The family of this 114-nucleotide RNA from Pangasianodon hypophthalmus is "Potassium channel RNA editing signal". NCBI's taxonomy places the organism under Eukaryota, Craniata, Neopterygii, Characiphysae, Pangasianodon. Rfam's curators write: This family represents a group of sequences related to the human potassium channel Kv1.1 hairpin element which directs the efficient modification of an adenosine to inosine by an adenosine deaminase acting on RNA (ADAR). The ADAR modification causes an isoleucine/valine recoding event which lies in the ion-conducting pore of the potassium channel. It is thought that this editing event targets the process of fast inactivation and allows a more rapid recovery from inactivation at negative potentials. Its family is annotated with adenosine to inosine editing in the Gene Ontology. A search with the family's covariance model found it, with a score of 107 bits.

RNA sequence: CUGGGCUAUGGCGACAUGUAUCCUGAGACGUGGUCGGGCAUGUUGGUUGGCGCUCUGUGUGCCCUGGCUGGUGUGCUCACCAUCGCUAUGCCAGUGCCUGUCAUCGUCAACAAC
Numbered sequence: 001c002u003g004g005g006c007u008a009u010g011g012c013g014a015c016a017u018g019u020a021u022c023c024u025g026a027g028a029c030g031u032g033g034u035c036g037g038g039c040a041u042g043u044u045g046g047u048u049g050g051c052g053c054u055c056u057g058u059g060u061g062c063c064c065u066g067g068c069u070g071g072u073g074u075g076c077u078c079a080c081c082a083u084c085g086c087u088a089u090g091c092c093a094g095u096g097c098c099u100g101u102c103a104u105c106g107u108c109a110a111c112a113a114c
Stems, first nucleotide, its partner, number of pairs: 002113001004111001008107004013102004018097004037077004049063003